This 163-nucleotide RNA from Knoellia subterranea belongs to the Rfam family "c-di-AMP riboswitch aptamer (ydaO/yuaA leader)".
RNA sequence: CUGUCACCGUCGCCGACUGCAACGCAAUCCGCUGGCAGGAGCGGGGGAACCACUUUUGGAUCAACCAGCUGGUUGGUCCUUGGGGUUAAGUCAGUCCUCGACUGGCCGGGCAGCAACCUCCGCCCGAACCCGACAGCUCACCCCGCAGGCAUCGAGAGGUUCA
Numbered sequence: 001c002u003g004u005c006a007c008c009g010u011c012g013c014c015g016a017c018u019g020c021a022a023c024g025c026a027a028u029c030c031g032c033u034g035g036c037a038g039g040a041g042c043g044g045g046g047g048a049a050c051c052a053c054u055u056u057u058g059g060a061u062c063a064a065c066c067a068g069c070u071g072g073u074u075g076g077u078c079c080u081u082g083g084g085g086u087u088a089a090g091u092c093a094g095u096c097c098u099c100g101a102c103u104g105g106c107c108g109g110g111c112a113g114c115a116a117c118c119u120c121c122g123c124c125c126g127a128a129c130c131c132g133a134c135a136g137c138u139c140a141c142c143c144c145g146c147a148g149g150c151a152u153c154g155a156g157a158g159g160u161u162c163a
Stems, first nucleotide, its partner, number of pairs: 012150003018040001020038001041146006051082002083131003091105004108125004
The source organism's lineage runs through Bacteria, Bacillati, Micrococcales, Knoellia and Knoellia subterranea. A search with the family's covariance model found it, with a score of 67 bits.